[Rfam]
RNA: MIR390 microRNA precursor family
RNA sequence: UGGGAGGAUCUGUGAAGCUCAGGAGGGAUAGCGCCAUGGACAAUGACUAUGAUUGUUGUUCUAAGGCUUUGUUUGGUUGUGUUUUAAUUUUUAUGUCAAUCACUACUGGCGCUAUCUAUCCUGAGUUUCACGGGUUCUUCUU
Numbered sequence: 001u002g003g004g005a006g007g008a009u010c011u012g013u014g015a016a017g018c019u020c021a022g023g024a025g026g027g028a029u030a031g032c033g034c035c036a037u038g039g040a041c042a043a044u045g046a047c048u049a050u051g052a053u054u055g056u057u058g059u060u061c062u063a064a065g066g067c068u069u070u071g072u073u074u075g076g077u078u079g080u081g082u083u084u085u086a087a088u089u090u091u092u093a094u095g096u097c098a099a100u101c102a103c104u105a106c107u108g109g110c111g112c113u114a115u116c117u118a119u120c121c122u123g124a125g126u127u128u129c130a131c132g133g134g135u136u137c138u139u140c141u142u
Base pairs, nucleotide, nucleotide: 010133016127017126018125019124020123021122022121023120024119026117027116028115029114030113031112032111033110034109035108